[Rfam]
RNA sequence: UGUUUAUUUAUUUAAAAUUUUAUAAUUAUUAAAUUUUAGGAAUAGUUAAUAAUAAUUUAUAAUUUUGAUUAGAUAGGUUUGUUAAUGCUAUAUAAUAGGUGUGGAAAAAAAUUAAAAAAUAAAAGAAAUAAUAAAUAUAAUAAAUAAAAUAUAAUUAGUCAGUCAGAAAUGGAUGCCAGCCGUUGCGGUAAUUUCUAUGCUUUUAAAUAUUAUACAUUUAUCAAAUUAAAUUGUUAUAAUCAAAUUUAACCAAUAAAAAAUAAAUAAUAAUAUAUUUUAUUUGUUUUUAAACACCAUUUGGUAUAUGCAAAUAUAAAAUUAUAGUAAUUAUAUAUUAUAUUCUAUUAUAUUUAUUCAUAUAGAUAGUUGUGUUGUAUUUUUUAUAUUUGACACCAUGAUAAGGUUUCUAGUUUGGGUAUGUAUAUUUCAUUCUCAAAAAUAUUUUUUUAUAUUAAAUUUUUGAUAUGUAGAUAAAAUAUUAAAUUAAAAAGGUAUUGUUGCCCACCAAUUUUUAUAAUAAAAAUAACGUGCAGUAAUUAAUAUAUUUAUAAAAAUAUAUUCGAUAUCUAU
Numbered sequence: 001u002g003u004u005u006a007u008u009u010a011u012u013u014a015a016a017a018u019u020u021u022a023u024a025a026u027u028a029u030u031a032a033a034u035u036u037u038a039g040g041a042a043u044a045g046u047u048a049a050u051a052a053u054a055a056u057u058u059a060u061a062a063u064u065u066u067g068a069u070u071a072g073a074u075a076g077g078u079u080u081g082u083u084a085a086u087g088c089u090a091u092a093u094a095a096u097a098g099g100u101g102u103g104g105a106a107a108a109a110a111a112u113u114a115a116a117a118a119a120u121a122a123a124a125g126a127a128a129u130a131a132u133a134a135a136u137a138u139a140a141u142a143a144a145u146a147a148a149a150u151a152u153a154a155u156u157a158g159u160c161a162g163u164c165a166g167a168a169a170u171g172g173a174u175g176c177c178a179g180c181c182g183u184u185g186c187g188g189u190a191a192u193u194u195c196u197a198u199g200c201u202u203u204u205a206a207a208u209a210u211u212a213u214a215c216a217u218u219u220a221u222c223a224a225a226u227u228a229a230a231u232u233g234u235u236a237u238a239a240u241c242a243a244a245u246u247u248a249a250c251c252a253a254u255a256a257a258a259a260a261u262a263a264a265u266a267a268u269a270a271u272a273u274a275u276u277u278u279a280u281u282u283g284u285u286u287u288u289a290a291a292c293a294c295c296a297u298u299u300g301g302u303a304u305a306u307g308c309a310a311a312u313a314u315a316a317a318a319u320u321a322u323a324g325u326a327a328u329u330a331u332a333u334a335u336u337a338u339a340u341u342c343u344a345u346u347a348u349a350u351u352u353a354u355u356c357a358u359a360u361a362g363a364u365a366g367u368u369g370u371g372u373u374g375u376a377u378u379u380u381u382u383a384u385a386u387u388u389g390a391c392a393c394c395a396u397g398a399u400a401a402g403g404u405u406u407c408u409a410g411u412u413u414g415g416g417u418a419u420g421u422a423u424a425u426u427u428c429a430u431u432c433u434c435a436a437a438a439a440u441a442u443u444u445u446u447u448u449a450u451a452u453u454a455a456a457u458u459u460u461u462g463a464u465a466u467g468u469a470g471a472u473a474a475a476a477u478a479u480u481a482a483a484u485u486a487a488a489a490a491g492g493u494a495u496u497g498u499u500g501c502c503c504a505c506c507a508a509u510u511u512u513u514a515u516a517a518u519a520a521a522a523a524u525a526a527c528g529u530g531c532a533g534u535a536a537u538u539a540a541u542a543u544a545u546u547u548a549u550a551a552a553a554a555u556a557u558a559u560u561c562g563a564u565a566u567c568u569a570u
Stems, first nucleotide, its partner, number of pairs: 040356006047347005052338005058332007068322002071319001074315002077312006085304006098295005105288005111282001123237001125235002128232001140221006155206003161201003165196006174190004179186002252281007260273003376484004382478003386474002392468002395464002397461001403434001408429001410427001439460001441458001443456003491502004503530003508524007539560009
A member of the RNA family "Trypanosomatid mitochondrial small subunit ribosomal RNA" from Trypanosoma vivax, 570 nucleotides long.
Gene Ontology terms of the family: ribosome and structural constituent of ribosome.
Taxonomically the source falls in Trypanosoma vivax (Eukaryota, Metakinetoplastina, Trypanosomatidae, Duttonella).
A search with the family's covariance model found it, with a score of 298 bits.